[Rfam]
RNA sequence: UGCGAACGAAGACUGACUCCUAUCAGUGACUUCGAUGGGCAGGAGCGGGGGACCCAGUGUGCCGGUGCCCGACACCGGCUGGGGGUGCGGCCACGCGGAGCGUGGCGGGCCACUUCAAGGCCUAACCCGACAGCUAACCUCGCACGCGGGUUGAAGGAUCAG
Numbered sequence: 001u002g003c004g005a006a007c008g009a010a011g012a013c014u015g016a017c018u019c020c021u022a023u024c025a026g027u028g029a030c031u032u033c034g035a036u037g038g039g040c041a042g043g044a045g046c047g048g049g050g051g052a053c054c055c056a057g058u059g060u061g062c063c064g065g066u067g068c069c070c071g072a073c074a075c076c077g078g079c080u081g082g083g084g085g086u087g088c089g090g091c092c093a094c095g096c097g098g099a100g101c102g103u104g105g106c107g108g109g110c111c112a113c114u115u116c117a118a119g120g121c122c123u124a125a126c127c128c129g130a131c132a133g134c135u136a137a138c139c140u141c142g143c144a145c146g147c148g149g150g151u152u153g154a155a156g157g158a159u160c161a162g
Base pairs, nucleotide, nucleotide: 001044045143046142047141048140049139050138055082083128084127085126091105092104093103094102108122109121110120111119

Annotation:
The family of this 162-nucleotide sequence from Krasilnikovia cinnamomea is "c-di-AMP riboswitch aptamer (ydaO/yuaA leader)". The source organism's lineage runs through Bacteria, Bacillati, Actinomycetota, Micromonosporaceae and Krasilnikovia.